[Rfam]
The record is a 110-nucleotide sequence from Tianweitania sediminis, which matches "Alphaproteobacterial ar15" in Rfam.
RNA sequence: AUCUCCCGGGCGCGUUCUCCUCCCAUUAGCGCCCGCGAGUGUUCCCCUCUGGAGGUUAGCCUUUUAGGCACUCCAUCAACUCAGCCCGGUCCUUGCGAUCGGGCUUUUUU
Numbered sequence: 001a002u003c004u005c006c007c008g009g010g011c012g013c014g015u016u017c018u019c020c021u022c023c024c025a026u027u028a029g030c031g032c033c034c035g036c037g038a039g040u041g042u043u044c045c046c047c048u049c050u051g052g053a054g055g056u057u058a059g060c061c062u063u064u065u066a067g068g069c070a071c072u073c074c075a076u077c078a079a080c081u082c083a084g085c086c087c088g089g090u091c092c093u094u095g096c097g098a099u100c101g102g103g104c105u106u107u108u109u110u
Stems, first nucleotide, its partner, number of pairs: 001040001003039003007035007050075005056070001083105006090095001
A reference for the family is del Val et al. (2012), "A survey of sRNA families in alpha-proteobacteria", RNA Biol. It scores 45 bits against the family's covariance model. Its Rfam clan is "suhB sRNA clan".